[Rfam]
RNA sequence: GUUAUGGGGAAGCGAUCUCCCCACGAGGCGACAGCCGAAGCGUCGCGUCCACCUCUCUCCGGAAGAGGACGCCCCGAUG
Numbered sequence: 001g002u003u004a005u006g007g008g009g010a011a012g013c014g015a016u017c018u019c020c021c022c023a024c025g026a027g028g029c030g031a032c033a034g035c036c037g038a039a040g041c042g043u044c045g046c047g048u049c050c051a052c053c054u055c056u057c058u059c060c061g062g063a064a065g066a067g068g069a070c071g072c073c074c075c076g077a078u079g
Stems, first nucleotide, its partner, number of pairs: 005023006045072006
Dot-bracket structure: ....((((((.......)))))).....................((((((................)))))).......
Description
A member of the RNA family "chrB-a RNA", 79 nucleotides long. The base pairs follow the family's consensus structure, which is taken from published work. The family has 163 seed sequences and 347 matches in Rfam 15.1. It is one of the family's seed sequences.